[Rfam]
The family of this 438-nucleotide part of an RNA from Schizothecium vesticola is "Ascomycota telomerase RNA". The pairing is the family consensus, mapped onto this sequence. Taxonomically the source falls in Schizothecium (Eukaryota, Opisthokonta, Dikarya, Sordariomycetes). Its family is annotated with telomerase activity, telomere maintenance via telomerase and telomerase catalytic core complex in the Gene Ontology. By type it is a non-coding RNA gene. Its Rfam clan is "Telomerase clan".

RNA sequence: AACACACGGAAAGACUCUGCUUGGCUCGGGGCUGGCGCUCGGGCUUCGCAUCUCUGGCUGCCGAGUUUGGCUGGAGUGGCAUCGGCGACGGCGAGCUUGUUAUCGGAGGGACGGCUCCGGCUGGGUGGCUCCGGCUCUGGCGACUGUGACCGAUCUGGGGAAACACUUGGUUGGCUUACUGUGUAGGAGUGCUCUGUCGGGUGGUUUGGAUGAAGGCAUCGGCAGGGUGAGGCCAUGGACUGGGACCCAUCUCGAGUUGGUGUCAAAGCUUCGUACUUGUCCGGUUCAUGGGUCCCUCUCUCUGUUUGGUGUUCGGAUUCUGAUCACUUAGGCGGGGUCUGCUUCAGAGCCGCCAGUUGAAAGGGGCAGGCCUCUUGGGAGGCGGUCCCGGUUGUCCUCUCUCCAGAAAUGGCGGGAGGGCAACCCCUCGUUGUGAGG
Numbered sequence: 001a002a003c004a005c006a007c008g009g010a011a012a013g014a015c016u017c018u019g020c021u022u023g024g025c026u027c028g029g030g031g032c033u034g035g036c037g038c039u040c041g042g043g044c045u046u047c048g049c050a051u052c053u054c055u056g057g058c059u060g061c062c063g064a065g066u067u068u069g070g071c072u073g074g075a076g077u078g079g080c081a082u083c084g085g086c087g088a089c090g091g092c093g094a095g096c097u098u099g100u101u102a103u104c105g106g107a108g109g110g111a112c113g114g115c116u117c118c119g120g121c122u123g124g125g126u127g128g129c130u131c132c133g134g135c136u137c138u139g140g141c142g143a144c145u146g147u148g149a150c151c152g153a154u155c156u157g158g159g160g161a162a163a164c165a166c167u168u169g170g171u172u173g174g175c176u177u178a179c180u181g182u183g184u185a186g187g188a189g190u191g192c193u194c195u196g197u198c199g200g201g202u203g204g205u206u207u208g209g210a211u212g213a214a215g216g217c218a219u220c221g222g223c224a225g226g227g228u229g230a231g232g233c234c235a236u237g238g239a240c241u242g243g244g245a246c247c248c249a250u251c252u253c254g255a256g257u258u259g260g261u262g263u264c265a266a267a268g269c270u271u272c273g274u275a276c277u278u279g280u281c282c283g284g285u286u287c288a289u290g291g292g293u294c295c296c297u298c299u300c301u302c303u304g305u306u307u308g309g310u311g312u313u314c315g316g317a318u319u320c321u322g323a324u325c326a327c328u329u330a331g332g333c334g335g336g337g338u339c340u341g342c343u344u345c346a347g348a349g350c351c352g353c354c355a356g357u358u359g360a361a362a363g364g365g366g367c368a369g370g371c372c373u374c375u376u377g378g379g380a381g382g383c384g385g386u387c388c389c390g391g392u393u394g395u396c397c398u399c400u401c402u403c404c405a406g407a408a409a410u411g412g413c414g415g416g417a418g419g420g421c422a423a424c425c426c427c428u429c430g431u432u433g434u435g436a437g438g
Stems, first nucleotide, its partner, number of pairs: 244264003247260003266278003